This 131-nucleotide sequence from Enterobacterales bacterium CwR94 belongs to the Rfam family "RtT RNA". This family represents a bacterial cis-regulatory element known as RtT RNA. The exact function of RtT is unknown although it is thought that it may be involved in changing the cellular response in relation to amino acid starvation.
[Rfam]
RNA sequence: AUAUUGCUGUGCAGGAGAAGGUCGAGAACCUUCGACAAGGUUCGAGUCGAGCGCAAGCGAGACAGCGUUGCCAUAGGCAACGACCCGCAGGGCAAGGUGCGUAGCACCGCGUAAUCCUUCUCCCACCACCA
Numbered sequence: 001a002u003a004u005u006g007c008u009g010u011g012c013a014g015g016a017g018a019a020g021g022u023c024g025a026g027a028a029c030c031u032u033c034g035a036c037a038a039g040g041u042u043c044g045a046g047u048c049g050a051g052c053g054c055a056a057g058c059g060a061g062a063c064a065g066c067g068u069u070g071c072c073a074u075a076g077g078c079a080a081c082g083a084c085c086c087g088c089a090g091g092g093c094a095a096g097g098u099g100c101g102u103a104g105c106a107c108c109g110c111g112u113a114a115u116c117c118u119u120c121u122c123c124c125a126c127c128a129c130c131a
Base pairs, nucleotide, nucleotide: 015122016121017120018119019118020117021116034093036091041089043087044086048059049058066082067081068080069079070078071077

Taxonomically the source falls in Enterobacterales (Bacteria, Pseudomonadati, Pseudomonadota, Gammaproteobacteria).